[Rfam]
RNA sequence: ACUGAGGAAUGAUGACAAUAAAAGGCCGAAUUGCAGUGUCUCCACAAGCAGUUGCUCUCUUUGGAAGCACAAUGACAAAGUCACCUGAAGCGAAUUAUUAGUCUGACCUCAGU
Numbered sequence: 001a002c003u004g005a006g007g008a009a010u011g012a013u014g015a016c017a018a019u020a021a022a023a024g025g026c027c028g029a030a031u032u033g034c035a036g037u038g039u040c041u042c043c044a045c046a047a048g049c050a051g052u053u054g055c056u057c058u059c060u061u062u063g064g065a066a067g068c069a070c071a072a073u074g075a076c077a078a079a080g081u082c083a084c085c086u087g088a089a090g091c092g093a094a095u096u097a098u099u100a101g102u103c104u105g106a107c108c109u110c111a112g113u
Base pairs, nucleotide, nucleotide: 001113002112003111004110005109006108007107014103015102016101025034026033035099036098037097038096041093042092043090047086048085051070052069056064057063074081
This 113-nucleotide sequence from Crocodylus porosus belongs to the Rfam family "Small nucleolar RNA SNORD89".
snoRNA HBII-289 belongs to the family of C/D snoRNAs. It is the human orthologue of the mouse MBII-289 and has no identified RNA target.
Gene Ontology terms of the family: nucleolus and RNA processing.